[Rfam]
RNA sequence: UUACCCAACGGAGGAGCACCCGAGAUGAGUAGACGUCCAUCAGGGAAUCGGGACGGAUCGAAAGGCGAGGGUGCCGAAGAAGGCGGAAGCCCCAGCGACCGACUUCUGGGCAUACGGGAAAUACCUGUAUGACUGUCACGAAGAAUGCGUGGAGAGCCGGUGGGUUG
Numbered sequence: 001u002u003a004c005c006c007a008a009c010g011g012a013g014g015a016g017c018a019c020c021c022g023a024g025a026u027g028a029g030u031a032g033a034c035g036u037c038c039a040u041c042a043g044g045g046a047a048u049c050g051g052g053a054c055g056g057a058u059c060g061a062a063a064g065g066c067g068a069g070g071g072u073g074c075c076g077a078a079g080a081a082g083g084c085g086g087a088a089g090c091c092c093c094a095g096c097g098a099c100c101g102a103c104u105u106c107u108g109g110g111c112a113u114a115c116g117g118g119a120a121a122u123a124c125c126u127g128u129a130u131g132a133c134u135g136u137c138a139c140g141a142a143g144a145a146u147g148c149g150u151g152g153a154g155a156g157c158c159g160g161u162g163g164g165u166u167g
Stems, first nucleotide, its partner, number of pairs: 006162002009159003016074006024066001032059002034055005078107005084101003089096001108134002111131008136152005142146001
RNA: Lysine riboswitch aptamer